Shown here is a 114-nucleotide RNA from Prevotella sp. ne3005, a member of the family "SAM-I/IV (S-adenosyl methionine) riboswitch aptamer".
RNA sequence: CGAAAGCAUCAAGAGCAGUCAUCUUCGGAUGGACUCGCCAACCGAGCAAAACGUAGCCACGGUGGUUAGUACGAUGCGGAAGCAAUAGUAUUCACUUCAAAACAAAACGUUAUG
Dot-bracket structure: .....(((((....(.((((...........)))))(((..(((.((.[......))..))).)))......))))).((((............))))...........]....
A search with the family's covariance model found it, with a score of 55 bits. Its Rfam clan is "SAM clan".